[Rfam]
Shown here is a 108-nucleotide RNA from Rhizobium giardinii, a member of the family "Rhizobiales sRNA Atu_At1". By type it is a small RNA. Taxonomically the source falls in Rhizobium (Bacteria, Pseudomonadota, Alphaproteobacteria, Hyphomicrobiales). The match comes from Rfam's covariance-model search (95 bits).
RNA sequence: UGCGAAUCCGUGGCAACCGGACGCGAGGGAGAUGGAGAAUACGGAGAUUUUUCCGGUUUCUCUUCGUGGCCAACGAAAAGGCAGACGAGCUCCUUACCCCUUCGGCUU
Numbered sequence: 001u002g003c004g005a006a007u008c009c010g011u012g013g014c015a016a017c018c019g020g021a022c023g024c025g026a027g028g029g030a031g032a033u034g035g036a037g038a039a040u041a042c043g044g045a046g047a048u049u050u051u052u053c054c055g056g057u058u059u060c061u062c063u064u065c066g067u068g069g070c071c072a073a074c075g076a077a078a079a080g081g082c083a084g085a086c087g088a089g090c091u092c093c094u095u096a097c098c099c100c101u102u103c104g105g106c107u108u
Stems, first nucleotide, its partner, number of pairs: 006107001008105002011023002014020001025102005034093004040068007069082003